[Rfam]
RNA sequence: AACUCUGGAAGAGGUGCGAGUCUCAGAUAACUUAGUAAUUUUCCUUUUUAAAAAGGACCUACCACAGGACUAAGUGAGGGGAGAGCUCGCCGAGGUGUUAGCACAUGGUAUGGCUGAUAUCGGCUGUAGGGUUUGAAUACCCGCAGUUGUCACCGGUAGGUGGAGAGCUUCUGGAGUC
Numbered sequence: 001a002a003c004u005c006u007g008g009a010a011g012a013g014g015u016g017c018g019a020g021u022c023u024c025a026g027a028u029a030a031c032u033u034a035g036u037a038a039u040u041u042u043c044c045u046u047u048u049u050a051a052a053a054a055g056g057a058c059c060u061a062c063c064a065c066a067g068g069a070c071u072a073a074g075u076g077a078g079g080g081g082a083g084a085g086c087u088c089g090c091c092g093a094g095g096u097g098u099u100a101g102c103a104c105a106u107g108g109u110a111u112g113g114c115u116g117a118u119a120u121c122g123g124c125u126g127u128a129g130g131g132u133u134u135g136a137a138u139a140c141c142c143g144c145a146g147u148u149g150u151c152a153c154c155g156g157u158a159g160g161u162g163g164a165g166a167g168c169u170u171c172u173g174g175a176g177u178c
Stems, first nucleotide, its partner, number of pairs: 006173006016090005021084004030075007094121009105111001122148006129142004150163005

A member of the RNA family "Lysine riboswitch aptamer" from Idiomarina seosinensis, 178 nucleotides long. Taxonomically the source falls in Idiomarina (Bacteria, Gammaproteobacteria, Alteromonadales, Idiomarinaceae). The base pairs follow the family's consensus structure, which is taken from published work.